Overview: Shown here is a 106-nucleotide RNA sequence from Brassica carinata, a member of the family "MIR394 microRNA precursor family". The match comes from Rfam's covariance-model search (97 bits). For this family Rfam cites "Computational identification of plant microRNAs and their targets, including a stress-induced miRNA" (Jones-Rhoades and Bartel, Mol Cell, 2004).
RNA sequence: CUUACAGAGCUCUUUGGCAUUCUGUCCACCUCCUCUUUCUAUAAGUGUGUAUCGACCUUUGUGUUUGUGAGUGGAGGUGGGCAUACUGCCAAUAGAGAUCUGUUAG
Dot-bracket structure: ..........(..((((((...(((((((((((.......................................)))))))))))...))))))...)..........